[Rfam]
The family of this 71-nucleotide RNA sequence from Candidula unifasciata is "mir-34 microRNA precursor family".
RNA sequence: GUUUUUCGGCAGUGUGGUUAGCUGGUUGUGGUUUAAAAGUCAACAACCACUAUCUGCAUUGCCACCAAAGC
Numbered sequence: 001g002u003u004u005u006u007c008g009g010c011a012g013u014g015u016g017g018u019u020a021g022c023u024g025g026u027u028g029u030g031g032u033u034u035a036a037a038a039g040u041c042a043a044c045a046a047c048c049a050c051u052a053u054c055u056g057c058a059u060u061g062c063c064a065c066c067a068a069a070g071c
Stems, first nucleotide, its partner, number of pairs: 002070004008063002011060007019052003023049007
A reference for the family is Dostie et al. (2003), "Numerous microRNPs in neuronal cells containing novel microRNAs", RNA. Its family is annotated with miRNA-mediated post-transcriptional gene silencing and RISC complex in the Gene Ontology. Rfam describes the family as follows. Human mir-34a was discovered computationally and later experimentally verified. The mature sequence is excised from the 5' arm of the hairpin. The family is grouped with related families in Rfam's "mir-34 clan". The base pairs follow the family's consensus structure, which was predicted with RNAalifold.